[Rfam]
Background: The family of this 109-nucleotide RNA from Simiduia agarivorans is "t44 RNA". It is annotated as a small RNA. A search with the family's covariance model found it, with a score of 57 bits. The family's consensus secondary structure was predicted with LocARNA. Lineage of the source: Bacteria > Pseudomonadati > Gammaproteobacteria > Cellvibrionaceae > Simiduia agarivorans.
RNA sequence: AGCGAUUACAUACAACGUCACACAUGGUCCGUCACGCCUGACCUGGGUGCCUGAAAGCCGCAUGUUUGCUGGCUUGAGGGUUGGUCGGUGGGGGUCAUGGAGGCCUAAC
Number, nucleotide and partner (000 for none) at each position: 001a000002g000003c000004g000005a000006u000007u000008a000009c000010a000011u000012a000013c000014a000015a000016c000017g000018u000019c000020a000021c000022a000023c099024a098025u097026g096027g095028u094029c093030c092031g000032u000033c000034a000035c090036g089037c088038c000039u087040g086041a085042c084043c083044u000045g000046g000047g000048u000049g081050c080051c079052u078053g000054a000055a000056a000057g000058c000059c000060g000061c000062a000063u000064g000065u000066u000067u000068g000069c000070u000071g000072g000073c000074u000075u000076g000077a000078g052079g051080g050081u049082u000083g043084g042085u041086c040087g039088g037089u036090g035091g000092g030093g029094g028095u027096c026097a025098u024099g023100g000101a000102g000103g000104c000105c000106u000107a000108a000109c000